[Rfam]
RNA: Mycobacterium sRNA Ms_IGR-8
RNA sequence: UGGGAGCGCUGACCCCGCGAGUGUGCAGCUAUGGCGGGGAUUCGGACAAAACUCCGCCGUAGCUGC
Dot-bracket structure: ........................((((((((((((((...(.....)...).)))))))))))))